Background
The record is an 84-nucleotide RNA sequence from Lentivirus humimdef1, which matches "HIV gag stem loop 3 (GSL3)" in Rfam. The family's RNA type in Rfam is cis-regulatory element. Its family is annotated with viral RNA genome packaging in the Gene Ontology. The base pairs follow the family's consensus structure, which was predicted with PFOLD. On this family, see Rong et al., Virology 2003: "Deletion of stem-loop 3 is compensated by second-site mutations within the Gag protein of human immunodeficiency virus type 1". It is one of the family's seed sequences.
RNA sequence: GGCCAGGGGGACGCAAAAGGUAUAAGCUAAAACAUAUAAUAUGGGCAAGCAGGGAGCUAGAACGAUUUGCACUUAAUCCUGGUC
Numbered sequence: 001g002g003c004c005a006g007g008g009g010g011a012c013g014c015a016a017a018a019g020g021u022a023u024a025a026g027c028u029a030a031a032a033c034a035u036a037u038a039a040u041a042u043g044g045g046c047a048a049g050c051a052g053g054g055a056g057c058u059a060g061a062a063c064g065a066u067u068u069g070c071a072c073u074u075a076a077u078c079c080u081g082g083u084c
Stems, first nucleotide, its partner, number of pairs: 001084008